The family of this 87-nucleotide RNA from Propionispora sp. 2/2-37 is "c-di-GMP-I riboswitch aptamer".
RNA sequence: AAAUAUAGUCCGCAAACCUUCUGAAAAGAUGGGACGCAAAGCCAUUGGGUCUAAGGAUGUUAAGUCUAUGAUUGCCUGGCUGCAUUU
Numbered sequence: 001a002a003a004u005a006u007a008g009u010c011c012g013c014a015a016a017c018c019u020u021c022u023g024a025a026a027a028g029a030u031g032g033g034a035c036g037c038a039a040a041g042c043c044a045u046u047g048g049g050u051c052u053a054a055g056g057a058u059g060u061u062a063a064g065u066c067u068a069u070g071a072u073u074g075c076c077u078g079g080c081u082g083c084a085u086u087u
Base pairs, nucleotide, nucleotide: 012037013036017032018031020029021028022027040081041080042079043078047076048075049072050071051070056066057065058064

The family's consensus secondary structure is taken from published work. GEMM was predicted in a large-scale screen for bacterial structured RNA regulatory elements.